[Rfam]
RNA sequence: GCUUUUUGUUCUAAGGUGCAUCUAGUGCAGAUAGUGAAGUAGAUUAGCAUCUACUGCCCUAAGUGCUCCUUCUGGCAUAAGAA
Dot-bracket structure: ....((...((..(((.((((.(((.((.(.(((................))).))).))).)))).)))...))...))...